[Rfam]
This 106-nucleotide sequence from Clunio marinus belongs to the Rfam family "mir-282 microRNA precursor family". NCBI's taxonomy places the organism under Eukaryota, Bilateria, Panarthropoda, Culicomorpha, Clunio. For this family Rfam cites "Direct sequencing and expression analysis of a large number of miRNAs in Aedes aegypti and a multi-species survey of novel mosquito miRNAs" (Li et al., BMC Genomics, 2009). Pairs were carried over by alignment from the consensus structure, which was predicted with RNAalifold.
RNA sequence: UGUCAGAAAAAAUUUAGCCUCUUUUAGGCUUUGUCUUUGACAUAUUGUCGAACUUAUGUAAAUCGCUAUUAGACAUAGCCUUAAGAGGUUAGGUGAAUUCUUGAUA
Numbered sequence: 001u002g003u004c005a006g007a008a009a010a011a012a013u014u015u016a017g018c019c020u021c022u023u024u025u026a027g028g029c030u031u032u033g034u035c036u037u038u039g040a041c042a043u044a045u046u047g048u049c050g051a052a053c054u055u056a057u058g059u060a061a062a063u064c065g066c067u068a069u070u071a072g073a074c075a076u077a078g079c080c081u082u083a084a085g086a087g088g089u090u091a092g093g094u095g096a097a098u099u100c101u102u103g104a105u106a
Stems, first nucleotide, its partner, number of pairs: 012094009027080004032075005